Background:
A member of the RNA family "Sulfolobus sRNA133" from Metallosphaera yellowstonensis, 69 nucleotides long. Pairs were carried over by alignment from the consensus structure. Rfam classes the family as a small RNA. From the family's description: This RNA has structural homologues in 3 archaeon Sulfolobus genomes: tokodaii, acidocalarius and solfotaricus. It shows extensive compensatory base changes, possibly consistent with a functional role. On this family, see Tang et al., Mol Microbiol 2005: "Identification of novel non-coding RNAs as potential antisense regulators in the archaeon Sulfolobus solfataricus".

RNA sequence: AAGGCACCCAAUGAAACUCCCCAUGUCCUUGAAGGGAGUGGCCACUGCUCCCGUAGACGGCAUGGGGAG
Numbered sequence: 001a002a003g004g005c006a007c008c009c010a011a012u013g014a015a016a017c018u019c020c021c022c023a024u025g026u027c028c029u030u031g032a033a034g035g036g037a038g039u040g041g042c043c044a045c046u047g048c049u050c051c052c053g054u055a056g057a058c059g060g061c062a063u064g065g066g067g068a069g
Base pairs, nucleotide, nucleotide: 017067018066019065020064024062025061026060027059029057030056034052035051036050037049038048039047040046041045